[Rfam]
RNA sequence: UCGGCCCCGGUUCACGACGUGCAAACCCGCUCGUCGACCCGGCGCC
Numbered sequence: 001u002c003g004g005c006c007c008c009g010g011u012u013c014a015c016g017a018c019g020u021g022c023a024a025a026c027c028c029g030c031u032c033g034u035c036g037a038c039c040c041g042g043c044g045c046c
Base pairs, nucleotide, nucleotide: 003046004045005044007042008041009040010039015036016035017034018033019032021030022029
Shown here is a 46-nucleotide RNA, a member of the family "L31-Actinobacteria ribosomal protein leader".
Its Rfam clan is "Ribosomal Protein L31 Leader clan".
Rfam classes the family as a cis-regulatory leader.
The sequence is in the family's curated seed alignment.